A member of the RNA family "mir-927 microRNA precursor family" from Leptidea sinapis, 86 nucleotides long. A search with the family's covariance model found it, with a score of 67 bits.
[Rfam]
RNA sequence: UAUCAGAAAUUUAGUUUUAGAAUCCAAACGCUUUGCCCAAAAAGCUUGGCAACGGUAAAGCGUAGGAAUUCUAAAACAAAAUAACC
Number, nucleotide and partner (000 for none) at each position: 001u000002a000003u000004c000005a000006g000007a000008a000009a000010u080011u079012u078013a000014g077015u076016u075017u074018u073019a072020g071021a070022a000023u068024c000025c066026a000027a000028a063029c062030g061031c060032u059033u058034u057035g000036c055037c054038c000039a000040a000041a000042a000043a000044g000045c000046u000047u000048g000049g000050c000051a000052a000053c000054g037055g036056u000057a034058a033059a032060g031061c030062g029063u028064a000065g000066g025067a000068a023069u000070u021071c020072u019073a018074a017075a016076a015077c014078a012079a011080a010081a000082u000083a000084a000085c000086c000